[Rfam]
RNA sequence: GCAGCGCCUCCGCCGAAUCCGUUGCGGAGCGUAGAACUCCGCGGAGCCGGGGACCCAUGUCCCCCGGGGUGAAUCCGUGCCCACGGCACGGUAGGGCGACCUCUUACGCCCGAACCCGUCAGCUAACCCGGCAGGCGGCCUGAAGAGGAAGA
Number, nucleotide and partner (000 for none) at each position: 001g000002c000003a000004g000005c000006g000007c000008c000009u000010c000011c137012g136013c135014c134015g000016a000017a000018u045019c044020c043021g042022u041023u000024g000025c000026g000027g000028a000029g000030c000031g000032u000033a000034g000035a000036a000037c000038u000039c000040c000041g022042c021043g020044g019045a018046g132047c131048c130049g129050g128051g127052g000053a000054c000055c000056c066057a000058u000059g000060u000061c000062c000063c000064c000065c000066g056067g117068g116069g115070u000071g000072a000073a000074u000075c091076c090077g089078u088079g000080c000081c000082c000083a000084c000085g000086g000087c000088a078089c077090g076091g075092u000093a000094g111095g110096g109097c108098g000099a000100c000101c000102u000103c000104u000105u000106a000107c000108g097109c096110c095111c094112g000113a000114a000115c069116c068117c067118g000119u000120c000121a000122g000123c000124u000125a000126a000127c051128c050129c049130g048131g047132c046133a000134g014135g013136c012137g011138g000139c000140c000141u000142g000143a000144a000145g000146a000147g000148g000149a000150a000151g000152a000